[Rfam]
RNA sequence: CAAAGCCAUGGAGAUGACAUUCCUCCCGAACCGCCUUUGCAGGCUGAUGAUGUCUACGUAACC
Numbered sequence: 001c002a003a004a005g006c007c008a009u010g011g012a013g014a015u016g017a018c019a020u021u022c023c024u025c026c027c028g029a030a031c032c033g034c035c036u037u038u039g040c041a042g043g044c045u046g047a048u049g050a051u052g053u054c055u056a057c058g059u060a061a062c063c
Stems, first nucleotide, its partner, number of pairs: 010026004016054006033044004
Dot-bracket structure: .........[[[[..((((((.]]]]......((((....))))....)))))).........